[Rfam]
RNA sequence: UCCCAGCAUCCAGAGAGGCCAUGGUGGCCUCGCCAACCUGCUCCUCCAGCAAGGUGGCAUCCCGAUCAAGGGAGAUGCGGCCCGACAGGGCAACGAAAGGAGAUCC
Number, nucleotide and partner (000 for none) at each position: 001u000002c000003c000004c000005a000006g078007c077008a076009u075010c074011c000012a000013g000014a000015g031016a030017g029018g028019c027020c026021a000022u000023g000024g000025u000026g020027g019028c018029c017030u016031c015032g058033c057034c056035a000036a000037c054038c053039u052040g050041c049042u048043c000044c000045u102046c000047c100048a042049g041050c040051a000052a039053g038054g037055u000056g034057g033058c032059a000060u000061c000062c000063c000064g000065a000066u000067c000068a000069a000070g000071g000072g000073a000074g010075a009076u008077g007078c006079g000080g091081c090082c089083c088084g000085a000086c000087a000088g083089g082090g081091c080092a000093a000094c000095g000096a000097a000098a000099g000100g047101a000102g045103a000104u000105c000106c000